[Rfam]
RNA sequence: AUAUAUAAAAAUAAUUUUAUCCAUAUAUUUCUGAUAAUAAGGUUCAGAUGUUUCUACGAGAAAUCCGUAAAAAUUUCUCACUAUGGGUAAAUCAAAAGGUACA
Numbered sequence: 001a002u003a004u005a006u007a008a009a010a011a012u013a014a015u016u017u018u019a020u021c022c023a024u025a026u027a028u029u030u031c032u033g034a035u036a037a038u039a040a041g042g043u044u045c046a047g048a049u050g051u052u053u054c055u056a057c058g059a060g061a062a063a064u065c066c067g068u069a070a071a072a073a074u075u076u077c078u079c080a081c082u083a084u085g086g087g088u089a090a091a092u093c094a095a096a097a098g099g100u101a102c103a
Stems, first nucleotide, its partner, number of pairs: 018089008030048005058079007